RNA sequence: ACAACGGCUCUUUUAAGAGCCACUCACUUUCUACUAAGAGCAGCGU
Numbered sequence: 001a002c003a004a005c006g007g008c009u010c011u012u013u014u015a016a017g018a019g020c021c022a023c024u025c026a027c028u029u030u031c032u033a034c035u036a037a038g039a040g041c042a043g044c045g046u
Base pairs, nucleotide, nucleotide: 006021007020008019009018010017011016
Dot-bracket structure: .....((((((....)))))).........................